[Rfam]
RNA: mraW RNA
Organism: Microbacterium rhizomatis
RNA sequence: UCUGAUUCCUCGGCUGUGACUCCCAGCCGCUCAUUCCCUGACACACUUCCCCGGUGCCAGGUCAGAGCGGAUGGGGAUCAGGGCCAAGGACCCAAGGCCC
Numbered sequence: 001u002c003u004g005a006u007u008c009c010u011c012g013g014c015u016g017u018g019a020c021u022c023c024c025a026g027c028c029g030c031u032c033a034u035u036c037c038c039u040g041a042c043a044c045a046c047u048u049c050c051c052c053g054g055u056g057c058c059a060g061g062u063c064a065g066a067g068c069g070g071a072u073g074g075g076g077a078u079c080a081g082g083g084c085c086a087a088g089g090a091c092c093c094a095a096g097g098c099c100c
Stems, first nucleotide, its partner, number of pairs: 010087001012085004018079002021076005027070006034064001037061004042056003